[Rfam]
RNA sequence: GUGCAGUGAUGCAUUUUAUUUAACAACACAUCAUUCUGAACUCACAGAUGUGUGGAGAACUAAUGACUGAGCACA
Numbered sequence: 001g002u003g004c005a006g007u008g009a010u011g012c013a014u015u016u017u018a019u020u021u022a023a024c025a026a027c028a029c030a031u032c033a034u035u036c037u038g039a040a041c042u043c044a045c046a047g048a049u050g051u052g053u054g055g056a057g058a059a060c061u062a063a064u065g066a067c068u069g070a071g072c073a074c075a
Stems, first nucleotide, its partner, number of pairs: 001074004
Small nucleolar RNA SNORD63: a 75-nucleotide RNA from Oryctolagus cuniculus. Its family is annotated with RNA processing and nucleolus in the Gene Ontology. By type it is a C/D-box small nucleolar RNA. Taxonomically the source falls in Oryctolagus (Eukaryota, Metazoa, Gnathostomata, Euarchontoglires). Rfam describes the family as follows. snoRNA U63 is found in both humans and mice. On this family, see Galardi et al., Mol Cell Biol 2002: "Purified box C/D snoRNPs are able to reproduce site-specific 2'-O-methylation of target RNA in vitro". The base pairs follow the family's consensus structure, which was predicted with PFOLD.